[Rfam]
RNA sequence: UAAUCGAGUAGAGGCGCAUUCAUCAAGAGUAUAUUUCAGGAACUUGAAGGAAGUUAUGACUGAAGUAAAAAGGGAUGAGUGCCGAAACGAUCAGCUGCCUUCCAGCUGGUUGUUGGGGCCCAGUUUAAGAAGCUGGGGACUGUCGCGAAAAUCGCGGAGAGCUAUCAAGAUG
Numbered sequence: 001u002a003a004u005c006g007a008g009u010a011g012a013g014g015c016g017c018a019u020u021c022a023u024c025a026a027g028a029g030u031a032u033a034u035u036u037c038a039g040g041a042a043c044u045u046g047a048a049g050g051a052a053g054u055u056a057u058g059a060c061u062g063a064a065g066u067a068a069a070a071a072g073g074g075a076u077g078a079g080u081g082c083c084g085a086a087a088c089g090a091u092c093a094g095c096u097g098c099c100u101u102c103c104a105g106c107u108g109g110u111u112g113u114u115g116g117g118g119c120c121c122a123g124u125u126u127a128a129g130a131a132g133c134u135g136g137g138g139a140c141u142g143u144c145g146c147g148a149a150a151a152u153c154g155c156g157g158a159g160a161g162c163u164a165u166c167a168a169g170a171u172g
Base pairs, nucleotide, nucleotide: 008165009164010163011162016082017081018080019079020078021077022076023075024074032067033066034065035064036063037062038061039060086114087113088112089111090110091109092108093107094106095105096104097103115141116140119137120136121135122134123133124132125131143157144156145155146154147153148152
Dot-bracket structure: .......((((....(((((((((.......((((((((....................))))))))......)))))))))...((((((((((((.....))))))))))))((..(((((((.....)))))))..)).((((((...))))))....)))).......
This 172-nucleotide sequence from Lentilactobacillus buchneri belongs to the Rfam family "Lysine riboswitch aptamer".
Gene Ontology term of the family: lysine biosynthetic process.